[Rfam]
This 139-nucleotide RNA from Papaver somniferum belongs to the Rfam family "small nucleolar RNA snoR134".
The organism belongs to Papaver, within Eukaryota.

RNA sequence: CUGCAUGUUGCACCCCGGGCUUCUCCGAAAUAUAUGAUGAUGAAGAAAGCCCCAAUGCUCAUGCUAAAUUUGUGCCGUUUAGUAUUGCAGGUUCACUUAGUUCUUCAUCAGCUUAUUUGUCAAAAUAACUGCCACAUUC
Numbered sequence: 001c002u003g004c005a006u007g008u009u010g011c012a013c014c015c016c017g018g019g020c021u022u023c024u025c026c027g028a029a030a031u032a033u034a035u036g037a038u039g040a041u042g043a044a045g046a047a048a049g050c051c052c053c054a055a056u057g058c059u060c061a062u063g064c065u066a067a068a069u070u071u072g073u074g075c076c077g078u079u080u081a082g083u084a085u086u087g088c089a090g091g092u093u094c095a096c097u098u099a100g101u102u103c104u105u106c107a108u109c110a111g112c113u114u115a116u117u118u119g120u121c122a123a124a125a126u127a128a129c130u131g132c133c134a135c136a137u138u139c
Stems, first nucleotide, its partner, number of pairs: 003064005010058002017052005022046002024043002074132002077129003083122001088119004096111002

The family's consensus secondary structure was predicted with RNAalifold. Rfam classes the family as an H/ACA-box small nucleolar RNA. The family has 5 seed sequences and 792 matches in Rfam 15.1.